[Rfam]
RNA sequence: GAGUCAAGCGGUGAACGUCCGGCAGCGCGUUGCGCCCCCGGGCGUGCUUUGC
Numbered sequence: 001g002a003g004u005c006a007a008g009c010g011g012u013g014a015a016c017g018u019c020c021g022g023c024a025g026c027g028c029g030u031u032g033c034g035c036c037c038c039c040g041g042g043c044g045u046g047c048u049u050u051g052c
Base pairs, nucleotide, nucleotide: 016044017043018042019041020040021039022038025035026034027033028032